Record summary:
The family of this 55-nucleotide RNA from Solanum tuberosum is "MIR8008 microRNA precursor family". Rfam 15.1 lists 240 matches to the family in 2 species. Its family is annotated with miRNA-mediated post-transcriptional gene silencing and RISC complex in the Gene Ontology. The base pairs follow the family's consensus structure, which was predicted with RNAalifold. It scores 73 bits against the family's covariance model.

[Rfam]
RNA sequence: AUACCCAGAAAAGCGGUGGACAGUGUCCUUUAGUUCGUCACUUUUCUGGAUUUUU
Numbered sequence: 001a002u003a004c005c006c007a008g009a010a011a012a013g014c015g016g017u018g019g020a021c022a023g024u025g026u027c028c029u030u031u032a033g034u035u036c037g038u039c040a041c042u043u044u045u046c047u048g049g050a051u052u053u054u055u
Base pairs, nucleotide, nucleotide: 001053003051005049006048007047008046009045010044011043012042013041015039016038017037018036019035020034021033